[Rfam]
RNA sequence: UAGGAGGAAGCCGAAAAUCCAAUAAUAGAGUAGGUA
Numbered sequence: 001u002a003g004g005a006g007g008a009a010g011c012c013g014a015a016a017a018u019c020c021a022a023u024a025a026u027a028g029a030g031u032a033g034g035u036a
Stems, first nucleotide, its partner, number of pairs: 003020003010035003
RNA: DUF805b RNA